[Rfam]
RNA: c-di-GMP-I riboswitch aptamer
RNA sequence: UGCUCGAAAUGGCAAACCUGGCGAAAGCCAGCGACGCAAAGCUACAGGGACUAAGGUAAACGUACUACGUUUACGAGUGUCAGCCAGCUGCCGAA
Numbered sequence: 001u002g003c004u005c006g007a008a009a010u011g012g013c014a015a016a017c018c019u020g021g022c023g024a025a026a027g028c029c030a031g032c033g034a035c036g037c038a039a040a041g042c043u044a045c046a047g048g049g050a051c052u053a054a055g056g057u058a059a060a061c062g063u064a065c066u067a068c069g070u071u072u073a074c075g076a077g078u079g080u081c082a083g084c085c086a087g088c089u090g091c092c093g094a095a
Stems, first nucleotide, its partner, number of pairs: 012037002018031005040089004047085002049081003056074008